The record is a 158-nucleotide RNA sequence from Blastococcus mobilis, which matches "c-di-AMP riboswitch aptamer (ydaO/yuaA leader)" in Rfam.
RNA sequence: GGCCGGACACCGCCGAACUGUGCGCGGCCCAGCGCCGCCAUCAGACCGGGGACCCAUGGUUCCUCUGGGGUGAAUCCUGCGCUCGAGCACGGGCGCAGGUAGGGCAACUUCCGGCCCGAACCCGUCAGCUAACUCGGUAGGCGGGCGAGGAAGAAACG
Numbered sequence: 001g002g003c004c005g006g007a008c009a010c011c012g013c014c015g016a017a018c019u020g021u022g023c024g025c026g027g028c029c030c031a032g033c034g035c036c037g038c039c040a041u042c043a044g045a046c047c048g049g050g051g052a053c054c055c056a057u058g059g060u061u062c063c064u065c066u067g068g069g070g071u072g073a074a075u076c077c078u079g080c081g082c083u084c085g086a087g088c089a090c091g092g093g094c095g096c097a098g099g100u101a102g103g104g105c106a107a108c109u110u111c112c113g114g115c116c117c118g119a120a121c122c123c124g125u126c127a128g129c130u131a132a133c134u135c136g137g138u139a140g141g142c143g144g145g146c147g148a149g150g151a152a153g154a155a156a157c158g
Base pairs, nucleotide, nucleotide: 011143012142013141014140018044019043020042045138046137047136048135049134050133055067056066068123069122070121076099077098078097079096080095081094082093083092102117103116104115105114

About this RNA:
The match comes from Rfam's covariance-model search (82 bits).